[Rfam]
RNA sequence: CUCUUAUCAAGAGUAGCUGAGGGACUGGCCCUAUGAAGCUCGGCAACCUCCUUUUAUAAAGGAAGGUGCUAAAUCCUGCAAACGAAAUUCGUUUGAUAGAUAAGAG
Number, nucleotide and partner (000 for none) at each position: 001c106002u105003c104004u103005u102006a101007u100008c099009a000010a000011g000012a000013g041014u000015a040016g039017c038018u000019g000020a000021g031022g030023g029024a000025c078026u000027g076028g075029c023030c022031c021032u000033a000034u000035g000036a000037a000038g017039c016040u015041c013042g070043g069044c068045a067046a000047c066048c065049u063050c062051c061052u060053u000054u000055u000056a000057u000058a000059a000060a052061g051062g050063a049064a000065g048066g047067u045068g044069c043070u042071a000072a000073a000074u098075c028076c027077u000078g025079c095080a094081a093082a092083c091084g090085a000086a000087a000088u000089u000090c084091g083092u082093u081094u080095g079096a000097u000098a074099g008100a007101u006102a005103a004104g003105a002106g001
Shown here is a 106-nucleotide sequence, a member of the family "SAM riboswitch aptamer (S box leader)". The family's consensus secondary structure is taken from published work. Clan: SAM clan.